[Rfam]
RNA sequence: UACCUAACUGGGUUAGGGCCCUGGCUCCAUCUCCUUUAGGAAAACCUUCUUUGGGGAGUGGGGCUUCGACCCUAACCCAGCUGGGCU
Numbered sequence: 001u002a003c004c005u006a007a008c009u010g011g012g013u014u015a016g017g018g019c020c021c022u023g024g025c026u027c028c029a030u031c032u033c034c035u036u037u038a039g040g041a042a043a044a045c046c047u048u049c050u051u052u053g054g055g056g057a058g059u060g061g062g063g064c065u066u067c068g069a070c071c072c073u074a075a076c077c078c079a080g081c082u083g084g085g086c087u
Stems, first nucleotide, its partner, number of pairs: 003085004008080011023065007031058006039050004
The record is an 87-nucleotide sequence from Equus caballus, which matches "mir-1296 microRNA precursor family" in Rfam. Its family is annotated with RISC complex and miRNA-mediated post-transcriptional gene silencing in the Gene Ontology. NCBI's taxonomy places the organism under Eukaryota, Bilateria, Deuterostomia, Euteleostomi, Equus. The base pairs follow the family's consensus structure, which was predicted with RNAalifold.